RNA sequence: ACUAUAGGAACAAAUGGGUGUCAUCCCAGUGCCCAGACACUGGGAUCCAGAAAAUUUGAUUGUGUACUAUACAACAUUUUCGAUCAAAAGCUGGAUUCCAGUGUCAAGCACUGGAAUGACAUCACAGGGGCACUGGAAUUU
Dot-bracket structure: ..........((......((((((.(((((((...(((((((((((((((........................................)))))))))))))))..))))))).))))))............))......
Numbered sequence: 001a002c003u004a005u006a007g008g009a010a011c012a013a014a015u016g017g018g019u020g021u022c023a024u025c026c027c028a029g030u031g032c033c034c035a036g037a038c039a040c041u042g043g044g045a046u047c048c049a050g051a052a053a054a055u056u057u058g059a060u061u062g063u064g065u066a067c068u069a070u071a072c073a074a075c076a077u078u079u080u081c082g083a084u085c086a087a088a089a090g091c092u093g094g095a096u097u098c099c100a101g102u103g104u105c106a107a108g109c110a111c112u113g114g115a116a117u118g119a120c121a122u123c124a125c126a127g128g129g130g131c132a133c134u135g136g137a138a139u140u141u
Stems, first nucleotide, its partner, number of pairs: 011135002019121006026114007036105015
A member of the RNA family "Wolbachia sRNA 46" from Trichonephila clavata, 141 nucleotides long. Pairs were carried over by alignment from the consensus structure. Rfam 15.1 lists 237 matches to the family in 34 species. A search with the family's covariance model found it, with a score of 75 bits.